[Rfam]
RNA sequence: UAUUUGUUAUGACAGUCACGGCGUAAAGCACAGGCGGCUGUGACCUGAUGGUAGAAAAUA
Number, nucleotide and partner (000 for none) at each position: 001u060002a059003u058004u057005u056006g000007u000008u000009a000010u000011g000012a000013c000014a000015g044016u043017c042018a041019c040020g039021g038022c037023g000024u000025a000026a000027a000028g035029c034030a000031c000032a000033g000034g029035c028036g000037g022038c021039u020040g019041u018042g017043a016044c015045c000046u000047g000048a000049u000050g000051g000052u000053a000054g000055a000056a005057a004058a003059u002060a001
Shown here is a 60-nucleotide sequence from Centropus unirufus, a member of the family "Selenocysteine insertion sequence 1". Rfam classes the family as a cis-regulatory element. The source organism's lineage runs through Eukaryota, Chordata, Dipnotetrapodomorpha, Saurischia and Centropus. The family has 61 seed sequences and 3,793 matches in Rfam 15.1. It scores 35 bits against the family's covariance model.